[Rfam]
RNA sequence: UUGCCUUAAACCAAUGAGUAAGGAAAACAGAGCGAGCGGAGAAAGAUGCUCGUAGCGCCUUUGUGUGCACGAAAUUUUGGAGGGGUUAAUAGGCUGGCCGAGUGUUGACGCUGCCUACCUUGCAGAACUCGCCUGUGCAGGCCUCCC
Numbered sequence: 001u002u003g004c005c006u007u008a009a010a011c012c013a014a015u016g017a018g019u020a021a022g023g024a025a026a027a028c029a030g031a032g033c034g035a036g037c038g039g040a041g042a043a044a045g046a047u048g049c050u051c052g053u054a055g056c057g058c059c060u061u062u063g064u065g066u067g068c069a070c071g072a073a074a075u076u077u078u079g080g081a082g083g084g085g086u087u088a089a090u091a092g093g094c095u096g097g098c099c100g101a102g103u104g105u106u107g108a109c110g111c112u113g114c115c116u117a118c119c120u121u122g123c124a125g126a127a128c129u130c131g132c133c134u135g136u137g138c139a140g141g142c143c144u145c146c147c
Stems, first nucleotide, its partner, number of pairs: 004023005032053007055068004085147001091144005097138001099135002102132003111125004

This 147-nucleotide sequence from Rhododendron simsii belongs to the Rfam family "U12 minor spliceosomal RNA". The match comes from Rfam's covariance-model search (76 bits). The base pairs follow the family's consensus structure. The organism belongs to Rhododendron, within Eukaryota.